[Rfam]
RNA sequence: GUUCCGUUGGUCAAAUGGUUAAGACGCCACACUUUCUAUGUGGAAUUAGGGGUUCGAUUCCCCUACGGAAUA
Numbered sequence: 001g002u003u004c005c006g007u008u009g010g011u012c013a014a015a016u017g018g019u020u021a022a023g024a025c026g027c028c029a030c031a032c033u034u035u036c037u038a039u040g041u042g043g044a045a046u047u048a049g050g051g052g053u054u055c056g057a058u059u060c061c062c063c064u065a066c067g068g069a070a071u072a
Base pairs, nucleotide, nucleotide: 001071002070003069004068005067006066007065010025011024012023027043028042029041030040031039048064049063050062051061052060
Annotation
tRNA: a 72-nucleotide sequence from Aquimarina sp. MMG016. It scores 62 bits against the family's covariance model. NCBI's taxonomy places the organism under Bacteria, Pseudomonadati, Flavobacteriales, Flavobacteriaceae, Aquimarina. By type it is a transfer RNA.